[Rfam]
RNA sequence: CCCCGGUCUGAUUCAAGUAAUCCAGGAUAGGCUGGUUCUCGCUACCACGGCCUAUUCUCGAUUACUUGUUUCAGGAAGCGG
Number, nucleotide and partner (000 for none) at each position: 001c000002c080003c000004c078005g000006g000007u075008c074009u073010g072011a071012u000013u000014c068015a067016a066017g065018u064019a063020a062021u061022c060023c000024a058025g057026g056027a055028u054029a053030g052031g051032c050033u049034g000035g000036u000037u000038c000039u000040c000041g000042c000043u000044a000045c000046c000047a000048c000049g033050g032051c031052c030053u029054a028055u027056u026057c025058u024059c000060g022061a021062u020063u019064a018065c017066u016067u015068g014069u000070u000071u011072c010073a009074g008075g007076a000077a000078g004079c000080g002081g000
Rfam assigns this 81-nucleotide RNA sequence from Megalops atlanticus to the family "mir-26 microRNA precursor family". A reference for the family is Lagos-Quintana et al. (2001), "Identification of novel genes coding for small expressed RNAs", Science. It scores 76 bits against the family's covariance model. The family's consensus secondary structure was predicted with RNAalifold.